Annotation:
This 146-nucleotide sequence from Gossypium raimondii belongs to the Rfam family "MIR7502 microRNA precursor family". It scores 86 bits against the family's covariance model. Gene Ontology terms of the family: miRNA-mediated post-transcriptional gene silencing and RISC complex. The family's consensus secondary structure was predicted with RNAalifold. The family has 6 seed sequences and 74,505 matches in Rfam 15.1.

RNA sequence: UGUUAACAAUUUCAUCUAUUUCAAUUGUUAAAAAUUUGCGUGACUAAUGGAAUAACUAGACAGUUAUACAUAGCAUACCAUGUGUAUCUUAUGCUGACGUACGAGGACUAGUUUUUAACAGUAAAAAUAGAUAGAUUUUUUAAACA
Numbered sequence: 001u002g003u004u005a006a007c008a009a010u011u012u013c014a015u016c017u018a019u020u021u022c023a024a025u026u027g028u029u030a031a032a033a034a035u036u037u038g039c040g041u042g043a044c045u046a047a048u049g050g051a052a053u054a055a056c057u058a059g060a061c062a063g064u065u066a067u068a069c070a071u072a073g074c075a076u077a078c079c080a081u082g083u084g085u086a087u088c089u090u091a092u093g094c095u096g097a098c099g100u101a102c103g104a105g106g107a108c109u110a111g112u113u114u115u116u117a118a119c120a121g122u123a124a125a126a127a128u129a130g131a132u133a134g135a136u137u138u139u140u141u142a143a144a145c146a
Base pairs, nucleotide, nucleotide: 002145003144004142005141006140008138009137011135012134014132015131016130018128019127020126021125024122025121026120028118029117030116031115032114033113